RNA sequence: UUAAAGGGUCGGUUGGCUAAAUAUGCCAUGCUCGCCCUGAGAUAAGGCGAGUGCUGUAUGGCUAUCAAGACAUAUGGCCGACAUAAUUUGUGGAAACUCUUAUAGGGUUGGCUCGCUCGGCCGACCCUGCAA
Numbered sequence: 001u002u003a004a005a006g007g008g009u010c011g012g013u014u015g016g017c018u019a020a021a022u023a024u025g026c027c028a029u030g031c032u033c034g035c036c037c038u039g040a041g042a043u044a045a046g047g048c049g050a051g052u053g054c055u056g057u058a059u060g061g062c063u064a065u066c067a068a069g070a071c072a073u074a075u076g077g078c079c080g081a082c083a084u085a086a087u088u089u090g091u092g093g094a095a096a097c098u099c100u101u102a103u104a105g106g107g108u109u110g111g112c113u114c115g116c117u118c119g120g121c122c123g124a125c126c127c128u129g130c131a132a
Base pairs, nucleotide, nucleotide: 008082009081010080011079012078014028015027016026017025029053030052031051032050033049034048035047036046038044039043054077055076056075057074058073059072060071101129102128106126107125108124109123110122111121112120113119
Dot-bracket structure: .......(((((.((((.......))))((((((((.((...)).))))))))(((((((..........))))))))))))..................((...((((((((.....)))))))).))...